[Rfam]
The record is an 88-nucleotide RNA from Salegentibacter flavus, which matches "TPP riboswitch aptamer (THI element)" in Rfam. Its family is annotated with thiamine pyrophosphate binding in the Gene Ontology.
RNA sequence: AUAUCAAUAUCGGGGUGCUUAGGCUGAGAUUAUACCCGCAUAACCUGAUCUGGAUAAUCCCAGUGUAGGGAAUAUUGAAUCUAGCGAG
Numbered sequence: 001a002u003a004u005c006a007a008u009a010u011c012g013g014g015g016u017g018c019u020u021a022g023g024c025u026g027a028g029a030u031u032a033u034a035c036c037c038g039c040a041u042a043a044c045c046u047g048a049u050c051u052g053g054a055u056a057a058u059c060c061c062a063g064u065g066u067a068g069g070g071a072a073u074a075u076u077g078a079a080u081c082u083a084g085c086g087a088g
Stems, first nucleotide, its partner, number of pairs: 006076005011038004016032001017024002044069004050063004
Dot-bracket structure: .....(((((((((.(((....)).......)..)))).....((((..((((......))))..))))..)))))............